[Rfam]
RNA: MIR807 microRNA precursor family
Organism: Oryza rufipogon
RNA sequence: AACUACACUAUCGAUGUAUAGAUUCACCCGCAAGAUGAUGUGGCUGUUACACAUAGGACGAGGACAUGUCAUCCCAUUACUAGCUAUCGCACGAAAUUAAUAUGAUGCCACAUCCUCAUCUUAGAUGGAACAACCACGUCAUCUUAUGGGUGAAUCCAUUCAUCGAUAGUGUGGUU
Numbered sequence: 001a002a003c004u005a006c007a008c009u010a011u012c013g014a015u016g017u018a019u020a021g022a023u024u025c026a027c028c029c030g031c032a033a034g035a036u037g038a039u040g041u042g043g044c045u046g047u048u049a050c051a052c053a054u055a056g057g058a059c060g061a062g063g064a065c066a067u068g069u070c071a072u073c074c075c076a077u078u079a080c081u082a083g084c085u086a087u088c089g090c091a092c093g094a095a096a097u098u099a100a101u102a103u104g105a106u107g108c109c110a111c112a113u114c115c116u117c118a119u120c121u122u123a124g125a126u127g128g129a130a131c132a133a134c135c136a137c138g139u140c141a142u143c144u145u146a147u148g149g150g151u152g153a154a155u156c157c158a159u160u161c162a163u164c165g166a167u168a169g170u171g172u173g174g175u176u
Stems, first nucleotide, its partner, number of pairs: 001176007009168007018159002021156008030147001032145002035142005041136003045132004051126001054123002057120002063114002070107004076101004086097002